[Rfam]
RNA sequence: GAUCGACUGGCCAAGUGGUUAAGGCGUCUGUCUUACAUUAGAUAUGUUGGAGUUUCACAGAAGGUCGCAGGUUCGAUCCCUGCGUCGAUCA
Number, nucleotide and partner (000 for none) at each position: 001g090002a089003u088004c087005g086006a085007c084008u000009g000010g025011c024012c023013a000014a000015g000016u000017g000018g000019u000020u000021a000022a000023g012024g011025c010026g000027u061028c060029u059030g058031u057032c000033u000034u000035a000036c000037a000038u000039u000040a000041g000042a000043u000044a000045u000046g000047u000048u000049g000050g000051a000052g000053u000054u000055u000056c000057a031058c030059a029060g028061a027062a000063g000064g000065u000066c000067g083068c082069a081070g080071g079072u000073u000074c000075g000076a000077u000078c000079c071080c070081u069082g068083c067084g007085u006086c005087g004088a003089u002090c001091a000
Annotation
A member of the RNA family "tRNA" from Penicillium cf. griseofulvum, 91 nucleotides long. The organism belongs to Penicillium, within Eukaryota. It scores 59 bits against the family's covariance model.